Small nucleolar RNA U19: a 119-nucleotide sequence from Camellia sinensis.
It scores 71 bits against the family's covariance model.
By type it is an H/ACA-box small nucleolar RNA.
Its family is annotated with nucleolus and RNA processing in the Gene Ontology.
Rfam 15.1 lists 421 matches to the family in 201 species.
RNA sequence: GUUUGGCUUAGUUAGUGGGCAUAAACUAAUUCGAACCCAAAUCUGGGUCUUCAACUAAGGCCUUUUUGAGGGGACUUCUUGUUUUACCAUAAUUGUCUUCCGAGCAGCCUUGGACAUUU
Numbered sequence: 001g002u003u004u005g006g007c008u009u010a011g012u013u014a015g016u017g018g019g020c021a022u023a024a025a026c027u028a029a030u031u032c033g034a035a036c037c038c039a040a041a042u043c044u045g046g047g048u049c050u051u052c053a054a055c056u057a058a059g060g061c062c063u064u065u066u067u068g069a070g071g072g073g074a075c076u077u078c079u080u081g082u083u084u085u086a087c088c089a090u091a092a093u094u095g096u097c098u099u100c101c102g103a104g105c106a107g108c109c110u111u112g113g114a115c116a117u118u119u
Stems, first nucleotide, its partner, number of pairs: 004021002007018002035048004055113007065104004070100006